[Rfam]
This 353-nucleotide part of an RNA from Delftia acidovorans belongs to the Rfam family "Bacterial small subunit ribosomal RNA". A search with the family's covariance model found it, with a score of 1564 bits. On this family, see Yusupov et al., Science 2001: "Crystal structure of the ribosome at 5.5 A resolution". Taxonomically the source falls in Delftia acidovorans (Bacteria, Pseudomonadati, Burkholderiales, Delftia). The family's consensus secondary structure is taken from published work.
RNA sequence: GGCGUAAAGCGUGCGCAGGCGGUUAUGUAAGACAGAUGUGAAAUCCCCGGGCUCAACCUGGGAACUGCAUUUGUGACUGCAUGGCUAGAGUACGGUAGAGGGGGAUGGAAUUCCGCGUGUAGCAGUGAAAUGCGUAGAUAUGCGGAGGAACACCGAUGGCGAAGGCAAUCCCCUGGACCUGUACUGACGCUCAUGCACGAAAGCGUGGGGAGCAAACAGGAUUAGAUACCCUGGUAGUCCACGCCCUAAACGAUGUCAACUGGUUGUUGGGAAUUAGUUUUCUCAGUAACGAAGCUAACGCGUGAAGUUGACCGCCUGGGGAGUACGGCCGCAAGGUUGAAACUCAAAGGAAU
Dot-bracket structure: (((.....(.((((...(((.(((((((.(((((((((((.....((((((.....))))))...)))))))))..)))))))))...(((..(((...((((((((...((((((((...(((......)))......))))))))...).......((....)).)))))))..)))...)))...)))...))))....((((((...((...((((.........))))...))))))))..........((((((..(((((((((((......)))))))))))...((....)).....)))))))))).(((......((((....))))....)))........